RNA sequence: UUAGGUAGUUAACCACAUAAAAUCUGUCAUCUAUUUUAAUUAUAUGCAUUUGCCUUAAUAAGUCAUCAAACCCUAGAUGUGUUCGAAUUGAGGUUGAUGCGUAUAAUUAAUGGAGAUGAUAGAUUUUAUGUGGUUAACUUAACU
Dot-bracket structure: (((...((((((((((((((((((((((..((.(.(((((((((((((((.((((((...............................)))))).))))))))))))))).).))..)))))))))))))))))))))))))..
The record is a 144-nucleotide sequence from Anisodus acutangulus, which matches "MIR7993 microRNA precursor family" in Rfam. Taxonomically the source falls in Anisodus (Eukaryota, Gunneridae, Solanales, Hyoscyameae). Its family is annotated with miRNA-mediated post-transcriptional gene silencing and RISC complex in the Gene Ontology.